This 94-nucleotide sequence from Dyadobacter sediminis belongs to the Rfam family "TPP riboswitch aptamer (THI element)". The organism belongs to Dyadobacter, within Bacteria.

RNA sequence: GAAUGGCUUUGGGGGUGUCCAAAAAGGACUGAGAUUCAUACCCUUUGAACCUGAAACAGUUUAUACUGUCGUAGGAAAAAGCAAUAUCAAGGUA
Numbered sequence: 001g002a003a004u005g006g007c008u009u010u011g012g013g014g015g016u017g018u019c020c021a022a023a024a025a026g027g028a029c030u031g032a033g034a035u036u037c038a039u040a041c042c043c044u045u046u047g048a049a050c051c052u053g054a055a056a057c058a059g060u061u062u063a064u065a066c067u068g069u070c071g072u073a074g075g076a077a078a079a080a081g082c083a084a085u086a087u088c089a090a091g092g093u094a
Stems, first nucleotide, its partner, number of pairs: 006082005011044004016038001017029004050075004056069004
Overview
The base pairs follow the family's consensus structure, which is taken from published work.